The family of this 82-nucleotide RNA is "chrB-b RNA". The sequence is in the family's curated seed alignment.
RNA sequence: UCGGGGCGUCAGCCCCCCGGCAUCCGGGCGCUACCGUUUAUCCCGCGUGGUUCCCUCAAGACGGUGUCCCGUCCAAGUCUGG
Numbered sequence: 001u002c003g004g005g006g007c008g009u010c011a012g013c014c015c016c017c018c019g020g021c022a023u024c025c026g027g028g029c030g031c032u033a034c035c036g037u038u039u040a041u042c043c044c045g046c047g048u049g050g051u052u053c054c055c056u057c058a059a060g061a062c063g064g065u066g067u068c069c070c071g072u073c074c075a076a077g078u079c080u081g082g
Base pairs, nucleotide, nucleotide: 001020002019003018004017005016006015009082010081011080012079060073061072062071063070064069